[Rfam]
RNA sequence: AAACGUGCUCCGGGGUCGGUGAAAGUCCGAACCGGCGGUGACAGUCCGCGAGCGGGGCUGCGUGAGAGCGCAGCACUGUUGAGCCGGUGAAAUUCCGGCACCGACGGUAAUGGGGUCAGGCAACGCCUGGCAACUCAGUCCGGAUGGGAGGCAGCACGGGU
Numbered sequence: 001a002a003a004c005g006u007g008c009u010c011c012g013g014g015g016u017c018g019g020u021g022a023a024a025g026u027c028c029g030a031a032c033c034g035g036c037g038g039u040g041a042c043a044g045u046c047c048g049c050g051a052g053c054g055g056g057g058c059u060g061c062g063u064g065a066g067a068g069c070g071c072a073g074c075a076c077u078g079u080u081g082a083g084c085c086g087g088u089g090a091a092a093u094u095c096c097g098g099c100a101c102c103g104a105c106g107g108u109a110a111u112g113g114g115g116u117c118a119g120g121c122a123a124c125g126c127c128u129g130g131c132a133a134c135u136c137a138g139u140c141c142g143g144a145u146g147g148g149a150g151g152c153a154g155c156a157c158g159g160g161u
Base pairs, nucleotide, nucleotide: 004158005157006156007155008154009153010150017029018028019027033103034102035049036048037047038046044101045100052079053078054077083099084098085097086096087095105142106141107140